[Rfam]
Nucleotides: 121
Stems, first nucleotide, its partner, number of pairs: 007041003011037002014034004047076008088116011
Number, partner (000 for none) and nucleotide at each position: 001000c002000a003000c004000u005000a006000a007041g008040g009039u010000u011037g012036g013000c014034c015033u016032c017031c018000u019000c020000u021000c022000c023000u024000c025000c026000u027000c028000c029000c030000u031017g032016g033015g034014g035000a036012c037011c038000a039009g040008c041007u042000g043000a044000c045000g046000g047076u048075c049074u050073g051072u052071g053070c054069c055000a056000c057000a058000c059000c060000u061000c062000c063000u064000c065000c066000c067000g068000u069054g070053g071052c072051g073050u074049g075048g076047g077000c078000g079000a080000u081000a082000a083000u084000a085000u086000c087000a088116g089115a090114c091113g092112c093111c094110g095109u096108c097107c098106c099000a100000c101000c102000u103000c104000c105000c106098g107097g108096g109095a110094u111093g112092g113091c114090g115089u116088c117000u118000u119000u120000c121000c
The record is a 121-nucleotide sequence from Marinibacterium profundimaris, which matches "Alphaproteobacterial ar14" in Rfam. Rfam's curators write: Smr14C2 was renamed NfeR1 (Nodule Formation Efficiency RNA) highly expressed in salt stress and during the symbiotic interaction on legume roots. A search with the family's covariance model found it, with a score of 63 bits. It is annotated as a small RNA. The base pairs follow the family's consensus structure.